[Rfam]
Source information:
The family of this 243-nucleotide RNA from Cryptotermes secundus is "RNase MRP". A reference for the family is Schmitt et al. (1993), "Secondary structure of RNase MRP RNA as predicted by phylogenetic comparison", FASEB J. It scores 112 bits against the family's covariance model.
RNA sequence: GAGUUCUAUCGAUUCUCGCUUCGGGGUUACAGGCAGAGUUCCAAGUAACUCAAAUAGCCCUGAGGAAAGUCCCCGGAUCCAUGGCAGAAAGUGCCUCGUAGUAAAUACGAAAGCGCUAACCAGCGUUCCAUUGAGGAUGGGAUCGUGCAAACGUGAUCUUCGGAACGGGUUAGAGGUGUUGGUCAUAGCACAGUUAUGCAAGAAGUAUUCAAAUAACAUGAUGGGGCUCAAUCUGAUAGAACU
Numbered sequence: 001g002a003g004u005u006c007u008a009u010c011g012a013u014u015c016u017c018g019c020u021u022c023g024g025g026g027u028u029a030c031a032g033g034c035a036g037a038g039u040u041c042c043a044a045g046u047a048a049c050u051c052a053a054a055u056a057g058c059c060c061u062g063a064g065g066a067a068a069g070u071c072c073c074c075g076g077a078u079c080c081a082u083g084g085c086a087g088a089a090a091g092u093g094c095c096u097c098g099u100a101g102u103a104a105a106u107a108c109g110a111a112a113g114c115g116c117u118a119a120c121c122a123g124c125g126u127u128c129c130a131u132u133g134a135g136g137a138u139g140g141g142a143u144c145g146u147g148c149a150a151a152c153g154u155g156a157u158c159u160u161c162g163g164a165a166c167g168g169g170u171u172a173g174a175g176g177u178g179u180u181g182g183u184c185a186u187a188g189c190a191c192a193g194u195u196a197u198g199c200a201a202g203a204a205g206u207a208u209u210c211a212a213a214u215a216a217c218a219u220g221a222u223g224g225g226g227c228u229c230a231a232u233c234u235g236a237u238a239g240a241a242c243u
Base pairs, nucleotide, nucleotide: 002243003242004241005240006239007238008237009236010235011234014203015202016201018199019198021063022062023061024060025059026058027057036051037050038049039048040047068228069227071226072225073224074223083095084094085093086092096110097109098108099107100106112177114175116173117172118171119170120169121168125166126165127164128163134160135159136158137157144153145152146151